The family of this 103-nucleotide sequence from Pontibacillus halophilus is "S10-Clostridia ribosomal protein leader". A search with the family's covariance model found it, with a score of 38 bits. The organism belongs to Pontibacillus halophilus, within Bacteria.

RNA sequence: AAAAGGCGAUGAAGCGAAAGGUUGCUGACACACCCGGCCCCUUUGCCAUGGCUUGGUUGUCAGGAUAAAUUUUCGUGGAGAAUGUCUGUUAUCAAAUAGGCGA
Numbered sequence: 001a002a003a004a005g006g007c008g009a010u011g012a013a014g015c016g017a018a019a020g021g022u023u024g025c026u027g028a029c030a031c032a033c034c035c036g037g038c039c040c041c042u043u044u045g046c047c048a049u050g051g052c053u054u055g056g057u058u059g060u061c062a063g064g065a066u067a068a069a070u071u072u073u074c075g076u077g078g079a080g081a082a083u084g085u086c087u088g089u090u091a092u093c094a095a096a097u098a099g100g101c102g103a
Stems, first nucleotide, its partner, number of pairs: 014076003018073004025063005085103002088101003
By type it is a cis-regulatory leader.
Pairs were carried over by alignment from the consensus structure, which is taken from published work.